[Rfam]
RNA sequence: AUAUACAAGUAGAAGCACCCGCUUCUCACCUGAUUGACACAUCCGUUUGUAGUUGGCAGGUUGCGAUGAUAGAUGAUAACAAUCGUAGUGUGGGUGUUUUGCGUCCACGCUUUUUUAUUUUU
Numbered sequence: 001a002u003a004u005a006c007a008a009g010u011a012g013a014a015g016c017a018c019c020c021g022c023u024u025c026u027c028a029c030c031u032g033a034u035u036g037a038c039a040c041a042u043c044c045g046u047u048u049g050u051a052g053u054u055g056g057c058a059g060g061u062u063g064c065g066a067u068g069a070u071a072g073a074u075g076a077u078a079a080c081a082a083u084c085g086u087a088g089u090g091u092g093g094g095u096g097u098u099u100u101g102c103g104u105c106c107a108c109g110c111u112u113u114u115u116u117a118u119u120u121u122u
Base pairs, nucleotide, nucleotide: 011026012025013024014023015022016021028061029060030059036054037053038052039050040049089109090108091107092106093105094104095103096102097101